[Rfam]
RNA sequence: AAAUUGAACAUGGUAAUCCUUCAUAUACACUCGAUAAUAUGGAUCGAACGUUUCUACCAGAUCGCCGUAAAUGAUCUGACUAUGAAGGCAGAUUCUCUUUGA
Numbered sequence: 001a002a003a004u005u006g007a008a009c010a011u012g013g014u015a016a017u018c019c020u021u022c023a024u025a026u027a028c029a030c031u032c033g034a035u036a037a038u039a040u041g042g043a044u045c046g047a048a049c050g051u052u053u054c055u056a057c058c059a060g061a062u063c064g065c066c067g068u069a070a071a072u073g074a075u076c077u078g079a080c081u082a083u084g085a086a087g088g089c090a091g092a093u094u095c096u097c098u099u100u101g102a
Base pairs, nucleotide, nucleotide: 018088019087020086021085022084023083024082025081031047032046033045034044035043058078059077060076061075062074063073064072
The record is a 102-nucleotide RNA from Litchfieldia stipae, which matches "Purine riboswitch aptamer" in Rfam. The organism belongs to Litchfieldia, within Bacteria. A search with the family's covariance model found it, with a score of 87 bits.